[Rfam]
RNA sequence: CCGGUUGUUCCAUCAACCGUUCCCUACCCAGACACGCGGCUCCGGUAACGGCGCGGUGUGAAGCUCUGGGGACAAUGUAACCGCCGAUAGUUUUCGGUACGCCGACCUGCGAGGAGAAGCGGAAUCUGCCAGCACAAAGGUGGUGAGGGAC
Dot-bracket structure: .((((((......))))))........((((((((((.((.(((....))).)).)))))....))))).............(((((......))))).(((....((....))....)))....(((((........)))))........

Shown here is a 151-nucleotide sequence from Pandoraea terrae, a member of the family "Group II catalytic intron D1-D4-7". Rfam links the family to the GO term Group II intron splicing. The family has 244 seed sequences and 1,296 matches in Rfam 15.1. The match comes from Rfam's covariance-model search (115 bits). The organism belongs to Pandoraea, within Bacteria. The pairing is the family consensus, mapped onto this sequence. About the family: Group II introns are found in rRNA, tRNA and mRNA of organelles in fungi, plants and protists, and also in mRNA in bacteria.